[Rfam]
RNA sequence: UCUUCGUUGCACGGGAGCCCGCACCAGCGGGCUGAGAGGACGGCUCGGGGCCGUCGACCGUCGAACCUGUCCGGGUCAUGCCGGCGUAGGGAGCACCAUGCCUCAGCCA
Numbered sequence: 001u002c003u004u005c006g007u008u009g010c011a012c013g014g015g016a017g018c019c020c021g022c023a024c025c026a027g028c029g030g031g032c033u034g035a036g037a038g039g040a041c042g043g044c045u046c047g048g049g050g051c052c053g054u055c056g057a058c059c060g061u062c063g064a065a066c067c068u069g070u071c072c073g074g075g076u077c078a079u080g081c082c083g084g085c086g087u088a089g090g091g092a093g094c095a096c097c098a099u100g101c102c103u104c105a106g107c108c109a
Base pairs, nucleotide, nucleotide: 006097008095009094010093011061012060013059014058017032018031019030020029021028039055040054041053042052043051044050045049066090067089068088069087071084072083073082074081
A member of the RNA family "TPP riboswitch aptamer (THI element)" from Cellulomonas sp. SLBN-39, 109 nucleotides long.